[Rfam]
RNA sequence: CAGAAUAAUGGCGAUGGAGUUCGCCAUAACCAUUCCUUAAAAGUUGGAAUUAAUAACUCCUACCAAAAG
Numbered sequence: 001c002a003g004a005a006u007a008a009u010g011g012c013g014a015u016g017g018a019g020u021u022c023g024c025c026a027u028a029a030c031c032a033u034u035c036c037u038u039a040a041a042a043g044u045u046g047g048a049a050u051u052a053a054u055a056a057c058u059c060c061u062a063c064c065a066a067a068a069g
Stems, first nucleotide, its partner, number of pairs: 010025004016060006032050004